Overview:
A member of the RNA family "U4 spliceosomal RNA" from Pan troglodytes, 141 nucleotides long. NCBI's taxonomy places the organism under Eukaryota, Metazoa, Deuterostomia, Chordata, Pan. The base pairs follow the family's consensus structure, which is taken from published work. About the family: U4 small nuclear RNA (U4 snRNA) is a component of the major U2-dependent spliceosome. Rfam links the family to the GO terms spliceosomal tri-snRNP complex assembly and U4 snRNP. It is annotated as a spliceosomal small nuclear RNA.
RNA sequence: GGCUUUGAGUGGUGCUACCACCGUCGCCUCUGAGGUUUAACCGAGGCGCGAUUGUUGCUGAUUGAAAACAUGAGACCUAAUUCCAGCCCCCUCCUCCCUCCAGUGGCAGGCGGAGGCUCCACAUCCAUUUCCUGCCUUGGU
Numbered sequence: 001g002g003c004u005u006u007g008a009g010u011g012g013u014g015c016u017a018c019c020a021c022c023g024u025c026g027c028c029u030c031u032g033a034g035g036u037u038u039a040a041c042c043g044a045g046g047c048g049c050g051a052u053u054g055u056u057g058c059u060g061a062u063u064g065a066a067a068a069c070a071u072g073a074g075a076c077c078u079a080a081u082u083c084c085a086g087c088c089c090c091c092u093c094c095u096c097c098c099u100c101c102a103g104u105g106g107c108a109g110g111c112g113g114a115g116g117c118u119c120c121a122c123a124u125c126c127a128u129u130u131c132c133u134g135c136c137u138u139g140g141u
Stems, first nucleotide, its partner, number of pairs: 020052001022050003026047003034042003086117003090113002093110003097106002